The family of this 388-nucleotide RNA sequence from Sphingobium ummariense is "Bacterial RNase P class A".
Ribonuclease P (RNase P) is a ubiquitous endoribonuclease, found in archaea, bacteria and eukarya as well as chloroplasts and mitochondria. Its best characterised activity is the generation of mature 5'-ends of tRNAs by cleaving the 5'-leader elements of precursor-tRNAs. Cellular RNase Ps are ribonucleoproteins. RNA from bacterial RNase Ps retains its catalytic activity in the absence of the protein subunit, i.e. it is a ribozyme. Isolated eukaryotic and archaeal RNase P RNA has not been shown to retain its catalytic function, but is still essential for the catalytic activity of the holoenzyme. Although the archaeal and eukaryotic holoenzyme s have a much greater protein content than the bacterial ones, the RNA cores from all the three lineages are homologous -- helices corresponding to P1, P2, P3, P4, and P10/11 are common to all cellular RNase P RNAs. Yet, there is considerable sequence variation, particularly among the eukaryotic RNAs. Identified in Yersinia as Ysr151/RnpB.
It scores 274 bits against the family's covariance model.
Lineage of the source: Bacteria > Pseudomonadati > Sphingobiaceae > Sphingobium > Sphingobium ummariense.
The base pairs follow the family's consensus structure, which is taken from published work.
RNA sequence: CCAGAGGGCCGGGCGGCCGCGGCGUGGCGGGUAACUUCCACGGCGAGGAAAGUCCGGGCUCCACGAAAUGACGGUGCCGGCUAACGGCCGGCGGGGGCGACCCCAGGGACAGUGCAACAGAAAGCAGGUCGCCACGGUUUCGGCCAGGCGAAAUUGAAAGGGUGCGGUAAGAGCGCACCGCGUCCCCGGCAACGGCGGACGGCACGGUAAACCCCACCGGGAGCAAGACCGAAUAGGGGCGGCGCGCGGACGCAAGUCCGCUAGGCAUGUUUCGGCCGAGACCGCCCGGGUUGGUUGCUUGAGCCGCGCAGCAAUGCACGGCCUAGAGGAAUGGCCGUCGCUCUCCUUCGGGGGAGCACAGAACCCGGCUUACAGGCCCUCUGGCAAU
Numbered sequence: 001c002c003a004g005a006g007g008g009c010c011g012g013g014c015g016g017c018c019g020c021g022g023c024g025u026g027g028c029g030g031g032u033a034a035c036u037u038c039c040a041c042g043g044c045g046a047g048g049a050a051a052g053u054c055c056g057g058g059c060u061c062c063a064c065g066a067a068a069u070g071a072c073g074g075u076g077c078c079g080g081c082u083a084a085c086g087g088c089c090g091g092c093g094g095g096g097g098c099g100a101c102c103c104c105a106g107g108g109a110c111a112g113u114g115c116a117a118c119a120g121a122a123a124g125c126a127g128g129u130c131g132c133c134a135c136g137g138u139u140u141c142g143g144c145c146a147g148g149c150g151a152a153a154u155u156g157a158a159a160g161g162g163u164g165c166g167g168u169a170a171g172a173g174c175g176c177a178c179c180g181c182g183u184c185c186c187c188g189g190c191a192a193c194g195g196c197g198g199a200c201g202g203c204a205c206g207g208u209a210a211a212c213c214c215c216a217c218c219g220g221g222a223g224c225a226a227g228a229c230c231g232a233a234u235a236g237g238g239g240c241g242g243c244g245c246g247c248g249g250a251c252g253c254a255a256g257u258c259c260g261c262u263a264g265g266c267a268u269g270u271u272u273c274g275g276c277c278g279a280g281a282c283c284g285c286c287c288g289g290g291u292u293g294g295u296u297g298c299u300u301g302a303g304c305c306g307c308g309c310a311g312c313a314a315u316g317c318a319c320g321g322c323c324u325a326g327a328g329g330a331a332u333g334g335c336c337g338u339c340g341c342u343c344u345c346c347u348u349c350g351g352g353g354g355a356g357c358a359c360a361g362a363a364c365c366c367g368g369c370u371u372a373c374a375g376g377c378c379c380u381c382u383g384g385c386a387a388u
Stems, first nucleotide, its partner, number of pairs: 001384010011373001012339007020045002023042005050371003054368005059223004072219005077091005092106001093104004107214002112212002114208002129153001131149003136145003161179006180203001181201005186195003227296004237287006271280003303322004308317003